[Rfam]
terC RNA: a 54-nucleotide RNA from Allosphingosinicella flava.
RNA sequence: UAUGCGGGCCGGGCCCCUCUGGCAGCCUCGCGGCUGUGAUGUCGGACCGCUUUU
Numbered sequence: 001u002a003u004g005c006g007g008g009c010c011g012g013g014c015c016c017c018u019c020u021g022g023c024a025g026c027c028u029c030g031c032g033g034c035u036g037u038g039a040u041g042u043c044g045g046a047c048c049g050c051u052u053u054u
Base pairs, nucleotide, nucleotide: 006048007047009045010044011043012042022037023036024035025034026033027032